[Rfam]
RNA: small nucleolar RNA snoR134
RNA sequence: AUGCACACUGCUACCCCGGGCAGCCCUGAUGAAAGUGAAGGAUCAGCCCCAUGCGUGUGCUACAUGCAAUUGCUGUCCAGUGUUGCAAGUCUGAUUUGAUUUUUUCACAUCUGAUUUGUGUCAAAGUGGCAGCUACAUAU
Number, nucleotide and partner (000 for none) at each position: 001a000002u000003g060004c059005a058006c057007a056008c055009u000010g054011c053012u000013a000014c000015c000016c000017c000018g049019g048020g047021c046022a000023g044024c000025c041026c040027u039028g000029a000030u000031g000032a000033a000034a000035g000036u000037g000038a000039a027040g026041g025042a000043u000044c023045a000046g021047c020048c019049c018050c000051a000052u000053g011054c010055g008056u007057g006058u005059g004060c003061u000062a000063c000064a000065u000066g000067c000068a000069a000070u000071u000072g133073c132074u131075g130076u129077c128078c000079a000080g000081u123082g122083u000084u120085g119086c118087a117088a116089g115090u000091c000092u000093g111094a110095u109096u000097u000098g000099a000100u000101u000102u000103u000104u000105u000106c000107a000108c000109a095110u094111c093112u000113g000114a000115u089116u088117u087118g086119u085120g084121u000122c082123a081124a000125a000126g000127u000128g077129g076130c075131a074132g073133c072134u000135a000136c000137a000138u000139a000140u000